[Rfam]
RNA: U1 spliceosomal RNA
RNA sequence: AUACUUACCUGGCAGGGGAGAUACCAUGAUCACGAAGGUGGUUUUCCCAGGGUGAGGCUCAUCCAUUGCACUGCGGGUGUGCUGACCCCUGCGAUUUCCCCAAAUGCGGGAAACUCGACUGCAUAAUUUGUGGUAGU
Numbered sequence: 001a002u003a004c005u006u007a008c009c010u011g012g013c014a015g016g017g018g019a020g021a022u023a024c025c026a027u028g029a030u031c032a033c034g035a036a037g038g039u040g041g042u043u044u045u046c047c048c049a050g051g052g053u054g055a056g057g058c059u060c061a062u063c064c065a066u067u068g069c070a071c072u073g074c075g076g077g078u079g080u081g082c083u084g085a086c087c088c089c090u091g092c093g094a095u096u097u098c099c100c101c102a103a104a105u106g107c108g109g110g111a112a113a114c115u116c117g118a119c120u121g122c123a124u125a126a127u128u129u130g131u132g133g134u135a136g137u
Base pairs, nucleotide, nucleotide: 012122013121014120015119016048017047018046019045020044021043023042024041025040026039027038049090050089051088052087054086056083057082058081060079061078062077063076064075092117093116094115095113096112097111099109100108